A member of the RNA family "Fluoride riboswitch aptamer (crcB RNA motif)" from Acidithrix ferrooxidans, 61 nucleotides long. A reference for the family is Baker et al. (2012), "Widespread genetic switches and toxicity resistance proteins for fluoride", Science.

RNA sequence: UUAUGGACUGGCGAUGGAGUUCGCCAUAACUGCCACAAUGGCUAAUAACUCCUACAUAGCG
Numbered sequence: 001u002u003a004u005g006g007a008c009u010g011g012c013g014a015u016g017g018a019g020u021u022c023g024c025c026a027u028a029a030c031u032g033c034c035a036c037a038a039u040g041g042c043u044a045a046u047a048a049c050u051c052c053u054a055c056a057u058a059g060c061g
Stems, first nucleotide, its partner, number of pairs: 010025004016052006032042003